The family of this 52-nucleotide sequence is "Xanthine riboswitch aptamer (NMT1 RNA)".
[Rfam]
RNA sequence: CUUUCGAGUAGAAGCGGUCAGUGCCGAAAUGGGAUGGGGCAUUGCUCAGGCA
Numbered sequence: 001c002u003u004u005c006g007a008g009u010a011g012a013a014g015c016g017g018u019c020a021g022u023g024c025c026g027a028a029a030u031g032g033g034a035u036g037g038g039g040c041a042u043u044g045c046u047c048a049g050g051c052a
Stems, first nucleotide, its partner, number of pairs: 006047005015037001018039002021035002024032003